[Rfam]
RNA sequence: CUUCACCGACCCCAGCCACAACGGACGCCCCUCCGGACGGUCCUGCCCGUACGUGGCCAGCAGCGCCUGCGCCUC
Numbered sequence: 001c002u003u004c005a006c007c008g009a010c011c012c013c014a015g016c017c018a019c020a021a022c023g024g025a026c027g028c029c030c031c032u033c034c035g036g037a038c039g040g041u042c043c044u045g046c047c048c049g050u051a052c053g054u055g056g057c058c059a060g061c062a063g064c065g066c067c068u069g070c071g072c073c074u075c
Stems, first nucleotide, its partner, number of pairs: 016024002031071001033069001038065002043060003047056003
Dot-bracket structure: ...............((.....))......(.(....((...(((.(((....))).)))...))...).)....
This 75-nucleotide RNA from Streptomyces dioscori belongs to the Rfam family "ASpks TB sRNA". The base pairs follow the family's consensus structure, which is taken from published work. Rfam 15.1 lists 9,052 matches to the family in 683 species. By type it is an antisense RNA.